[Rfam]
RNA sequence: UGAUCCCGCGCGGGAGAGCGCCCGGACCGCCAGUCCGGGCCGCCGAAGGAGCAACUCCUCCCCGGAACCUCUCAGGCGACGAAGACCGCGCGGAGCAG
Numbered sequence: 001u002g003a004u005c006c007c008g009c010g011c012g013g014g015a016g017a018g019c020g021c022c023c024g025g026a027c028c029g030c031c032a033g034u035c036c037g038g039g040c041c042g043c044c045g046a047a048g049g050a051g052c053a054a055c056u057c058c059u060c061c062c063c064g065g066a067a068c069c070u071c072u073c074a075g076g077c078g079a080c081g082a083a084g085a086c087c088g089c090g091c092g093g094a095g096c097a098g
Stems, first nucleotide, its partner, number of pairs: 006093008020040006042077003045073002049071003055065002
Dot-bracket structure: .....((((((((......((((((.........)))))).(((((..(((...((.......))...))))).)))........)))))))).....
Rfam assigns this 98-nucleotide sequence from Actinoallomurus iriomotensis to the family "Glycine riboswitch aptamer". Lineage of the source: Bacteria > Actinomycetes > Streptosporangiales > Thermomonosporaceae > Actinoallomurus. The match comes from Rfam's covariance-model search (62 bits).